The family of this 67-nucleotide RNA from Noviherbaspirillum sedimenti is "int-alpA RNA". The family's consensus secondary structure is taken from published work. Acidobacteria (1 example), Planctomycetes (1 example), Proteobacteria. Rfam classes the family as a small RNA.
[Rfam]
RNA sequence: GCCAGUCCUAGGCUGAUCCCCGAAAACCCGUUUCCCUGACGGGCUGGACUGGCACCUUAUUACAGGG
Numbered sequence: 001g002c003c004a005g006u007c008c009u010a011g012g013c014u015g016a017u018c019c020c021c022g023a024a025a026a027c028c029c030g031u032u033u034c035c036c037u038g039a040c041g042g043g044c045u046g047g048a049c050u051g052g053c054a055c056c057u058u059a060u061u062a063c064a065g066g067g
Base pairs, nucleotide, nucleotide: 001053002052003051004050005049006048007047008046011021012020027043028042029041030040034067035066036065037064038063